[Rfam]
RNA sequence: UUUUUAUGAAUGACAACUACAGAUCAAACCCUAUGCGGUCUCUGUAGUUCGAUGAAUGCAAUAA
Numbered sequence: 001u002u003u004u005u006a007u008g009a010a011u012g013a014c015a016a017c018u019a020c021a022g023a024u025c026a027a028a029c030c031c032u033a034u035g036c037g038g039u040c041u042c043u044g045u046a047g048u049u050c051g052a053u054g055a056a057u058g059c060a061a062u063a064a
Stems, first nucleotide, its partner, number of pairs: 001064002004061002015049009030038002
Shown here is a 64-nucleotide sequence from Muraenolepis orangiensis, a member of the family "Selenocysteine insertion sequence 1". Pairs were carried over by alignment from the consensus structure, which is taken from published work. The family's RNA type in Rfam is cis-regulatory element. The source organism's lineage runs through Eukaryota, Euteleostomi, Neoteleostei, Gadariae and Muraenolepis.